[Rfam]
RNA sequence: GGUCUGUGAUGAGUUCUGGCAUGUAUUACCUGAGUGUAACUUUGACGAUUAUCGCUUUAGCUCUAGAAUUACUCUGAGACCUG
Numbered sequence: 001g002g003u004c005u006g007u008g009a010u011g012a013g014u015u016c017u018g019g020c021a022u023g024u025a026u027u028a029c030c031u032g033a034g035u036g037u038a039a040c041u042u043u044g045a046c047g048a049u050u051a052u053c054g055c056u057u058u059a060g061c062u063c064u065a066g067a068a069u070u071a072c073u074c075u076g077a078g079a080c081c082u083g
Stems, first nucleotide, its partner, number of pairs: 001081004
Record summary: The family of this 83-nucleotide sequence from Pampusana beccarii is "Small nucleolar RNA SNORD45". It is annotated as a C/D-box small nucleolar RNA. The match comes from Rfam's covariance-model search (61 bits).